[Rfam]
RNA sequence: AAUUCUAAAGUGUGGUAGAAAGAACUACAUGUAGUUCUUUCUACCACACUUUAGAGUCUUUCUAUUAUCUUGAAUCUACAUAGAAUA
Numbered sequence: 001a002a003u004u005c006u007a008a009a010g011u012g013u014g015g016u017a018g019a020a021a022g023a024a025c026u027a028c029a030u031g032u033a034g035u036u037c038u039u040u041c042u043a044c045c046a047c048a049c050u051u052u053a054g055a056g057u058c059u060u061u062c063u064a065u066u067a068u069c070u071u072g073a074a075u076c077u078a079c080a081u082a083g084a085a086u087a
Base pairs, nucleotide, nucleotide: 006053007052008051009050010049011048012047013046014045015044016043017042018041019040020039021038022037023036024035025034026033027032
Dot-bracket structure: .....((((((((((((((((((((((....))))))))))))))))))))))..................................